[Rfam]
RNA sequence: AAUUCUUAUGGGCAAAUUUUACGAAAGUAAGAGACGCAAAACCACGGGCCUAAGGCAUUCGCUAUGGCAGCCGGGUUGCACAU
Numbered sequence: 001a002a003u004u005c006u007u008a009u010g011g012g013c014a015a016a017u018u019u020u021a022c023g024a025a026a027g028u029a030a031g032a033g034a035c036g037c038a039a040a041a042c043c044a045c046g047g048g049c050c051u052a053a054g055g056c057a058u059u060c061g062c063u064a065u066g067g068c069a070g071c072c073g074g075g076u077u078g079c080a081c082a083u
Base pairs, nucleotide, nucleotide: 012037013036017032018031019030020029021028022027040077041076042075043074045073046072047071048068049067050066055062056061
The record is an 83-nucleotide RNA from Heyndrickxia ginsengihumi, which matches "c-di-GMP-I riboswitch aptamer" in Rfam.